[Rfam]
RNA sequence: UUUGGCACAAUGAGGUUAUAUAAGCGGAUGAGAUCGAAAGAUCUUUGAUUUCUCUUGCAAAAUUCAAAGUCCUUUUCAUUCUGAGUGCCAU
Numbered sequence: 001u002u003u004g005g006c007a008c009a010a011u012g013a014g015g016u017u018a019u020a021u022a023a024g025c026g027g028a029u030g031a032g033a034u035c036g037a038a039a040g041a042u043c044u045u046u047g048a049u050u051u052c053u054c055u056u057g058c059a060a061a062a063u064u065c066a067a068a069g070u071c072c073u074u075u076u077c078a079u080u081c082u083g084a085g086u087g088c089c090a091u
Stems, first nucleotide, its partner, number of pairs: 004089005010079005

The family of this 91-nucleotide RNA from Tripterygium wilfordii is "Small nucleolar RNA Z162". The organism belongs to Tripterygium, within Eukaryota. For this family Rfam cites "The high diversity of snoRNAs in plants: identification and comparative study of 120 snoRNA genes from Oryza sativa" (Chen et al., Nucleic Acids Res, 2003). A search with the family's covariance model found it, with a score of 45 bits. Pairs were carried over by alignment from the consensus structure, which was predicted with PFOLD.